Shown here is an 85-nucleotide sequence from Sinocyclocheilus anshuiensis, a member of the family "mir-135 microRNA precursor family". NCBI's taxonomy places the organism under Eukaryota, Metazoa, Actinopteri, Clupeocephala, Sinocyclocheilus. For this family Rfam cites "Identification of tissue-specific microRNAs from mouse" (Lagos-Quintana et al., Curr Biol, 2002). Gene Ontology terms of the family: gene silencing by miRNA and RISC complex.
RNA sequence: CUGCUGUUGUGUCUUAUGGCUUUUUAUUCCUAUGUGAAGGUGAAUAAGGUUCAUGUAGGGAUACAAGCCACUAAACACACAGUGA
Numbered sequence: 001c002u003g004c005u006g007u008u009g010u011g012u013c014u015u016a017u018g019g020c021u022u023u024u025u026a027u028u029c030c031u032a033u034g035u036g037a038a039g040g041u042g043a044a045u046a047a048g049g050u051u052c053a054u055g056u057a058g059g060g061a062u063a064c065a066a067g068c069c070a071c072u073a074a075a076c077a078c079a080c081a082g083u084g085a
Stems, first nucleotide, its partner, number of pairs: 002084006009078004014073001017070006026062012